[Rfam]
RNA: ASdes TB sRNA
RNA sequence: AGCGCGACCGGGUCCACCGCGCGCGUGACGGUGAGGUACGACCGCAGGGCGUGGCUGUGCCGGUCCUC
Numbered sequence: 001a002g003c004g005c006g007a008c009c010g011g012g013u014c015c016a017c018c019g020c021g022c023g024c025g026u027g028a029c030g031g032u033g034a035g036g037u038a039c040g041a042c043c044g045c046a047g048g049g050c051g052u053g054g055c056u057g058u059g060c061c062g063g064u065c066c067u068c
Stems, first nucleotide, its partner, number of pairs: 005062002008059001012029002015027003035056003038052003043049001